mir-67 microRNA precursor family: a 77-nucleotide sequence from Chionoecetes opilio.
RNA sequence: GGUUUUGGUCACUCACUCAACUUGGAUGUGAUGUGCUGCCCCUCCAUCACAACCUCCUUGAGUGAGUGACCGGCCUG
Numbered sequence: 001g002g003u004u005u006u007g008g009u010c011a012c013u014c015a016c017u018c019a020a021c022u023u024g025g026a027u028g029u030g031a032u033g034u035g036c037u038g039c040c041c042c043u044c045c046a047u048c049a050c051a052a053c054c055u056c057c058u059u060g061a062g063u064g065a066g067u068g069a070c071c072g073g074c075c076u077g
Base pairs, nucleotide, nucleotide: 009068012066013065014064015063016062017061018060019059020058024054025053027051028050029049030048031047032046033045
The source organism's lineage runs through Eukaryota, Metazoa, Arthropoda, Decapoda and Chionoecetes. For this family Rfam cites "Identification of conserved microRNAs in Bombyx mori (silkworm) and regulation of fibroin L chain production by microRNAs in heterologous system" (Cao et al., Insect Biochem Mol Biol, 2008). Pairs were carried over by alignment from the consensus structure, which was predicted with RNAalifold.